RNA: Flavivirus DB element
Organism: Orthoflavivirus ugandaense
RNA sequence: GCCUGAAGGCAAAUCAGUUCACUGGAUUUGCUGUUAAGGACUAGAGGUUAGAAGGGACCC
Numbered sequence: 001g002c003c004u005g006a007a008g009g010c011a012a013a014u015c016a017g018u019u020c021a022c023u024g025g026a027u028u029u030g031c032u033g034u035u036a037a038g039g040a041c042u043a044g045a046g047g048u049u050a051g052a053a054g055g056g057a058c059c060c
Base pairs, nucleotide, nucleotide: 001060002039003038008032009031010030011029012028013027014026015025046059047058048057049056